[Rfam]
RNA sequence: GUAGCUUUCGGGACUGUCGCUUUCUGAUUUUUCAGAAAGAGGAAAGUCCGGACUCCAAAGGGCAGGAAGCUGCCGAAAGGCAGGUGGGGGUAACCUCACGGAAAGGGCCACAGAAAAUAGACAACCUUCAUUUUAGUAGGCUGGGAAACAGCCGAAAUGUAAAUAGGAAGGUUCAGGUGAAACGGUAGGGUAAAAGCCUACCAGUACUACUGGCGACAGUAGUAGCUGGCAACCCCCUUCCGGAGUAAUCCCAAGUAGGAGAGCGUUAAGGCUGGCCCGGCUUGCUCUCGGGUAGGGAGCUUAGAUAAAUGACAGUCUAAAACAGAAUCCGGCUUACCUGAAAGCUACACCC
Numbered sequence: 001g002u003a004g005c006u007u008u009c010g011g012g013a014c015u016g017u018c019g020c021u022u023u024c025u026g027a028u029u030u031u032u033c034a035g036a037a038a039g040a041g042g043a044a045a046g047u048c049c050g051g052a053c054u055c056c057a058a059a060g061g062g063c064a065g066g067a068a069g070c071u072g073c074c075g076a077a078a079g080g081c082a083g084g085u086g087g088g089g090g091u092a093a094c095c096u097c098a099c100g101g102a103a104a105g106g107g108c109c110a111c112a113g114a115a116a117a118u119a120g121a122c123a124a125c126c127u128u129c130a131u132u133u134u135a136g137u138a139g140g141c142u143g144g145g146a147a148a149c150a151g152c153c154g155a156a157a158u159g160u161a162a163a164u165a166g167g168a169a170g171g172u173u174c175a176g177g178u179g180a181a182a183c184g185g186u187a188g189g190g191u192a193a194a195a196g197c198c199u200a201c202c203a204g205u206a207c208u209a210c211u212g213g214c215g216a217c218a219g220u221a222g223u224a225g226c227u228g229g230c231a232a233c234c235c236c237c238u239u240c241c242g243g244a245g246u247a248a249u250c251c252c253a254a255g256u257a258g259g260a261g262a263g264c265g266u267u268a269a270g271g272c273u274g275g276c277c278c279g280g281c282u283u284g285c286u287c288u289c290g291g292g293u294a295g296g297g298a299g300c301u302u303a304g305a306u307a308a309a310u311g312a313c314a315g316u317c318u319a320a321a322a323c324a325g326a327a328u329c330c331g332g333c334u335u336a337c338c339u340g341a342a343a344g345c346u347a348c349a350c351c352c
Stems, first nucleotide, its partner, number of pairs: 001348010011337001012317007020039008044335003048332005053245004060278004065241005070083005084099001086097004100236002105234002107230003122176001124172006131165001184202006204226001205224008249298004259289006269283005

The family of this 352-nucleotide sequence from Hydrogenothermus marinus is "Bacterial RNase P class A". The family's consensus secondary structure is taken from published work.